RNA sequence: GUGCGUGGCGGCGAUACCGUUACGUCACCAUUCUCCUCUUGUCGUUGUUGCUCCGGGGCUCGAAGCCCCGGUUUUUUUUA
Numbered sequence: 001g002u003g004c005g006u007g008g009c010g011g012c013g014a015u016a017c018c019g020u021u022a023c024g025u026c027a028c029c030a031u032u033c034u035c036c037u038c039u040u041g042u043c044g045u046u047g048u049u050g051c052u053c054c055g056g057g058g059c060u061c062g063a064a065g066c067c068c069c070g071g072u073u074u075u076u077u078u079u080a
Stems, first nucleotide, its partner, number of pairs: 001028002003025005009019003053071007
Dot-bracket structure: (((((((.(((.....))).))))).))........................(((((((.....))))))).........
RNA: Burkholderia sRNA 16 (Bc_KC_sr1)